[Rfam]
RNA: Small nucleolar RNA U83B
RNA sequence: AGAGAUGUGUGAUGUAAAAACAUGGUAUCUGCCCCUGCCAGGGCAGUCUGAAUUACUCUGUAGAAGGACACCAUGCUGCCUUCCUUCUGAUGUCUCU
Dot-bracket structure: (((((.......................................................................................)))))
Numbered sequence: 001a002g003a004g005a006u007g008u009g010u011g012a013u014g015u016a017a018a019a020a021c022a023u024g025g026u027a028u029c030u031g032c033c034c035c036u037g038c039c040a041g042g043g044c045a046g047u048c049u050g051a052a053u054u055a056c057u058c059u060g061u062a063g064a065a066g067g068a069c070a071c072c073a074u075g076c077u078g079c080c081u082u083c084c085u086u087c088u089g090a091u092g093u094c095u096c097u
Stems, first nucleotide, its partner, number of pairs: 001097005